[Rfam]
RNA: mir-156 microRNA precursor family
Organism: Apostasia shenzhenica
RNA sequence: AUGACAGAAGAGAGUGAGCACCCAUGGUGUUUUCUUGCAUGCAGGGAGGUCGAACGCCAUGCUUGAAGCUAUGCGUGCUUACUCUCUAUCUGUCAU
Numbered sequence: 001a002u003g004a005c006a007g008a009a010g011a012g013a014g015u016g017a018g019c020a021c022c023c024a025u026g027g028u029g030u031u032u033u034c035u036u037g038c039a040u041g042c043a044g045g046g047a048g049g050u051c052g053a054a055c056g057c058c059a060u061g062c063u064u065g066a067a068g069c070u071a072u073g074c075g076u077g078c079u080u081a082c083u084c085u086c087u088a089u090c091u092g093u094c095a096u
Base pairs, nucleotide, nucleotide: 001096002095003094004093005092006091007090008089010086011085012084013083014082015081016080017079018078019077020076021075023073024072025071026070027069028068